[Rfam]
RNA sequence: GGCCGAGUGUGGGCGAAUAAAAGACCUGAAAAGGGAAUAAGCCCGCUUGCUCUACGACAAGUUUUCAGCACUCGGCCACCAGAGC
Number, nucleotide and partner (000 for none) at each position: 001g077002g076003c075004c074005g073006a072007g071008u070009g069010u000011g044012g043013g042014c041015g000016a038017a000018u000019a000020a000021a000022a000023g000024a000025c034026c033027u032028g000029a000030a000031a000032a027033g026034g025035g000036a000037a000038u016039a000040a000041g014042c013043c012044c011045g062046c061047u060048u059049g058050c000051u000052c000053u000054a000055c000056g000057a000058c049059a048060a047061g046062u045063u000064u000065u000066c000067a000068g000069c009070a008071c007072u006073c005074g004075g003076c002077c001078a000079c000080c000081a000082g000083a000084g000085c000
Source information
Shown here is an 85-nucleotide RNA sequence, a member of the family "sRNA-Xcc1". For this family Rfam cites "HrpG, a key hrp regulatory protein of Xanthomonas campestris pv. vesicatoria is homologous to two-component response regulators" (Wengelnik et al., Mol Plant Microbe Interact, 1996).